Overview:
Streptomyces sRNA 4677: a 249-nucleotide sequence from Streptomyces scabiei. It is one of the family's seed sequences. Located in the intergenic region between anti-sigma factor SCO4677 gene and a putative regulatory protein gene SCO4676. scr4677 expression requires the SCO4677 activity and scr4677 sRNA itself seem to affect the levels of the SCO4676-associated transcripts.

[Rfam]
RNA sequence: AACUCCGGUGCCACGGGUGAUCUUCCCAAAGAAACAUGAUGGGGAAAGAAACCCCACCAAGCCCCACCCCUCCCGCCCGCGGCUCCCGCUCACUCUCGCGAGUGAACAUCACCAACUUGGCUGGCUUCGGGACAGGUUGACUGCUCUACGCUCAGCGCGGCACCACACAACCGCAGACAUGCGACGGCCCCCGCCGGGACGGCAAUCCCAGUGCGAGGGCCUGACCACCGAGGAAGACAGGACUUCCCG
Numbered sequence: 001a002a003c004u005c006c007g008g009u010g011c012c013a014c015g016g017g018u019g020a021u022c023u024u025c026c027c028a029a030a031g032a033a034a035c036a037u038g039a040u041g042g043g044g045a046a047a048g049a050a051a052c053c054c055c056a057c058c059a060a061g062c063c064c065c066a067c068c069c070c071u072c073c074c075g076c077c078c079g080c081g082g083c084u085c086c087c088g089c090u091c092a093c094u095c096u097c098g099c100g101a102g103u104g105a106a107c108a109u110c111a112c113c114a115a116c117u118u119g120g121c122u123g124g125c126u127u128c129g130g131g132a133c134a135g136g137u138u139g140a141c142u143g144c145u146c147u148a149c150g151c152u153c154a155g156c157g158c159g160g161c162a163c164c165a166c167a168c169a170a171c172c173g174c175a176g177a178c179a180u181g182c183g184a185c186g187g188c189c190c191c192c193g194c195c196g197g198g199a200c201g202g203c204a205a206u207c208c209c210a211g212u213g214c215g216a217g218g219g220c221c222u223g224a225c226c227a228c229c230g231a232g233g234a235a236g237a238c239a240g241g242a243c244u245u246c247c248c249g
Base pairs, nucleotide, nucleotide: 007229008228009227010226016077017076018075019074090105091104092103093102094101095100120156121155122154123153124152186221187220188219189218190217192215193214194213196209197208198207199206232247233246234245235244236243